Shown here is an 86-nucleotide RNA sequence from Durio zibethinus, a member of the family "MIR397 microRNA precursor family". A search with the family's covariance model found it, with a score of 69 bits. The family has 7 seed sequences and 496 matches in Rfam 15.1. For this family Rfam cites "Rice MicroRNA effector complexes and targets" (Wu et al., Plant Cell, 2009).
[Rfam]
RNA sequence: GGAAGAAACGUCAUUGAGUGCAGCGUUGAUGAAUUCUUUCAAUUUCUGGGAGGAAUUCGCCAGCGCUACAUUCAAUCAUGUUUUUU
Numbered sequence: 001g002g003a004a005g006a007a008a009c010g011u012c013a014u015u016g017a018g019u020g021c022a023g024c025g026u027u028g029a030u031g032a033a034u035u036c037u038u039u040c041a042a043u044u045u046c047u048g049g050g051a052g053g054a055a056u057u058c059g060c061c062a063g064c065g066c067u068a069c070a071u072u073c074a075a076u077c078a079u080g081u082u083u084u085u086u
Stems, first nucleotide, its partner, number of pairs: 006083006013076008022067007030059009